RNA sequence: UUCUUAUUGGAUGAUGACUGUUACGUGCCAUGUUCUGAUUGGAUGUCAACUCCAUAAAAGAUGAAAUGAAUUGUUGUUUUCAUUUAUCAAUCAGAACAUGACAUGUGACAAUUAUCAUUC
Number, nucleotide and partner (000 for none) at each position: 001u000002u000003c000004u000005u000006a000007u000008u000009g000010g000011a000012u000013g000014a000015u000016g000017a000018c000019u000020g109021u108022u107023a106024c000025g104026u103027g000028c000029c100030a099031u098032g000033u096034u095035c094036u093037g000038a091039u090040u089041g000042g000043a000044u000045g000046u000047c000048a000049a000050c000051u000052c000053c000054a000055u000056a000057a000058a000059a000060g000061a000062u000063g000064a000065a000066a000067u000068g000069a000070a000071u000072u000073g000074u000075u000076g000077u000078u000079u000080u000081c000082a000083u000084u000085u000086a000087u000088c000089a040090a039091u038092c000093a036094g035095a034096a033097c000098a031099u030100g029101a000102c000103a026104u025105g000106u023107g022108a021109c020110a000111a000112u000113u000114a000115u000116c000117a000118u000119u000120c000
Source information: A member of the RNA family "MIR1520 microRNA precursor family" from Glycine max, 120 nucleotides long. Pairs were carried over by alignment from the consensus structure, which was predicted with RNAalifold. NCBI's taxonomy places the organism under Eukaryota, Streptophyta, Embryophyta, Tracheophyta, Glycine subgen. Soja.